[Rfam]
RNA sequence: CUAGUUACGGUGACAUGGUGCCCGAAACCAUCGCGGGCAAGAUCGUGGGAGGCGUCUGUUCGCUGAGCGGUGUGCUGGUCAUCGCGCUACCCGUACCUGUAAUCGUGUCCAAC
Numbered sequence: 001c002u003a004g005u006u007a008c009g010g011u012g013a014c015a016u017g018g019u020g021c022c023c024g025a026a027a028c029c030a031u032c033g034c035g036g037g038c039a040a041g042a043u044c045g046u047g048g049g050a051g052g053c054g055u056c057u058g059u060u061c062g063c064u065g066a067g068c069g070g071u072g073u074g075c076u077g078g079u080c081a082u083c084g085c086g087c088u089a090c091c092c093g094u095a096c097c098u099g100u101a102a103u104c105g106u107g108u109c110c111a112a113c
Stems, first nucleotide, its partner, number of pairs: 002112001004109001006107005013100003017096001020094002036076004049061002
Dot-bracket structure: .(.(.(((((..(((.(..((..............((((.........((.........))...........))))................)).).)))..))))).)..).

This 113-nucleotide RNA from Culex quinquefasciatus belongs to the Rfam family "Potassium channel RNA editing signal".
Rfam classes the family as a cis-regulatory element.
Pairs were carried over by alignment from the consensus structure, which is taken from published work.
The source organism's lineage runs through Eukaryota, Eumetazoa, Ecdysozoa, Culicomorpha and Culex pipiens complex.
Rfam describes the family as follows. This family represents a group of sequences related to the human potassium channel Kv1.1 hairpin element which directs the efficient modification of an adenosine to inosine by an adenosine deaminase acting on RNA (ADAR). The ADAR modification causes an isoleucine/valine recoding event which lies in the ion-conducting pore of the potassium channel. It is thought that this editing event targets the process of fast inactivation and allows a more rapid recovery from inactivation at negative potentials.